Shown here is a 79-nucleotide sequence from Salvia splendens, a member of the family "Small nucleolar RNA SNORD18". Taxonomically the source falls in core Calosphace (Eukaryota, Embryophyta, eudicotyledons, lamiids). The family's RNA type in Rfam is C/D-box small nucleolar RNA. For this family Rfam cites "Two different snoRNAs are encoded in introns of amphibian and human L1 ribosomal protein genes" (Prislei et al., Nucleic Acids Res, 1993).
RNA sequence: GAGAUACGAUGAUUUCAUUAUUUGGUCCGUGUUUCUGAACUUAACCUGACUGAUAAACCCUUUCCAAAACUCUGAUCUC
Numbered sequence: 001g002a003g004a005u006a007c008g009a010u011g012a013u014u015u016c017a018u019u020a021u022u023u024g025g026u027c028c029g030u031g032u033u034u035c036u037g038a039a040c041u042u043a044a045c046c047u048g049a050c051u052g053a054u055a056a057a058c059c060c061u062u063u064c065c066a067a068a069a070c071u072c073u074g075a076u077c078u079c
Stems, first nucleotide, its partner, number of pairs: 001079004